Shown here is an 86-nucleotide RNA sequence, a member of the family "skipping-rope RNA". It is annotated as a small RNA. It is one of the family's seed sequences.
RNA sequence: AUAUUUUGAAGUGGAGAACGUGCUGCCAUACACCUGCGUAUGCGGGUUAUAAAGAGAUGCGGGAGAAGGCACACCCGCCGAAAUAU
Dot-bracket structure: ((((((((..((((.....[[[[[.)))).(((((((....))))))......)....(((((....]]]]].)))))))))))))